[Rfam]
RNA sequence: AUGUGCUUACAGCUCUUUGUGAAUUUGUCUAGUAGGUCGUUCGGUUUUCACCAGAAAGCCCUC
Numbered sequence: 001a002u003g004u005g006c007u008u009a010c011a012g013c014u015c016u017u018u019g020u021g022a023a024u025u026u027g028u029c030u031a032g033u034a035g036g037u038c039g040u041u042c043g044g045u046u047u048u049c050a051c052c053a054g055a056a057a058g059c060c061c062u063c
Base pairs, nucleotide, nucleotide: 035060036059037058040056041055042054043052044051045050

The family of this 63-nucleotide RNA from Molossus molossus is "U7 small nuclear RNA".
The family has 49 seed sequences and 10,439 matches in Rfam 15.1.
Pairs were carried over by alignment from the consensus structure, which was predicted with PFOLD.